[Rfam]
RNA sequence: UACUACCAAACCCUAUCUUCACCUCCACGUGGUGACCGCUGGGAGCUCUUUCUAAACGAAAUGCUCUAGAGGGAGAAGG
Numbered sequence: 001u002a003c004u005a006c007c008a009a010a011c012c013c014u015a016u017c018u019u020c021a022c023c024u025c026c027a028c029g030u031g032g033u034g035a036c037c038g039c040u041g042g043g044a045g046c047u048c049u050u051u052c053u054a055a056a057c058g059a060a061a062u063g064c065u066c067u068a069g070a071g072g073g074a075g076a077a078g079g
Stems, first nucleotide, its partner, number of pairs: 012079003016075001018073003021033003044065003049060003
RNA: drz-agam-1 ribozyme